RNA: Small nucleolar RNA SNORA74
RNA sequence: UCCAGCAGAGUCGGCUGCUCAUUGCUGCUCAGUGCUUGGGAUAGUGUUAUGCUGCUGGGAAAGAAAUGUGCUGCCAAGUGGCCCCUGGCACCACCAGUGCUGUUCUGGUGCUGGGUGGUGCUGGGUUUGGCAGCACGCUGCAUCCGUGAGAGUGGAGCAACUCCUCCUCGAUGGAGUCAAUCCUAGAUCGGCUGCAGACAAU
Numbered sequence: 001u002c003c004a005g006c007a008g009a010g011u012c013g014g015c016u017g018c019u020c021a022u023u024g025c026u027g028c029u030c031a032g033u034g035c036u037u038g039g040g041a042u043a044g045u046g047u048u049a050u051g052c053u054g055c056u057g058g059g060a061a062a063g064a065a066a067u068g069u070g071c072u073g074c075c076a077a078g079u080g081g082c083c084c085c086u087g088g089c090a091c092c093a094c095c096a097g098u099g100c101u102g103u104u105c106u107g108g109u110g111c112u113g114g115g116u117g118g119u120g121c122u123g124g125g126u127u128u129g130g131c132a133g134c135a136c137g138c139u140g141c142a143u144c145c146g147u148g149a150g151a152g153u154g155g156a157g158c159a160a161c162u163c164c165u166c167c168u169c170g171a172u173g174g175a176g177u178c179a180a181u182c183c184u185a186g187a188u189c190g191g192c193u194g195c196a197g198a199c200a201a202u
Base pairs, nucleotide, nucleotide: 001059002058003057004056005055006054007053008052010050011049014045015044016043017042019041020040024035025034068136069135070134071133072132073131074130075129076128083125084124085123088121089120090119091118092117093116095113096112097111098110099109100108101107138197139196140195141194142193144191145190154183155182156181160177161176162175163174164173